[Rfam]
RNA: Hepatitis C virus stem-loop SL8670
Organism: Orthohepacivirus hominis
RNA sequence: AAAGUUGCGGCGUCGAGGAGGACAGAUCAGCUCUGCGAGCCUUCACGGAGGCUAUGACCAGAUAUUCUGCCCCUCCCGGGGACGCCCCACAG
Numbered sequence: 001a002a003a004g005u006u007g008c009g010g011c012g013u014c015g016a017g018g019a020g021g022a023c024a025g026a027u028c029a030g031c032u033c034u035g036c037g038a039g040c041c042u043u044c045a046c047g048g049a050g051g052c053u054a055u056g057a058c059c060a061g062a063u064a065u066u067c068u069g070c071c072c073c074u075c076c077c078g079g080g081g082a083c084g085c086c087c088c089a090c091a092g
Stems, first nucleotide, its partner, number of pairs: 007086001010083001013080002017076002020073002028069001030066001032062004038053006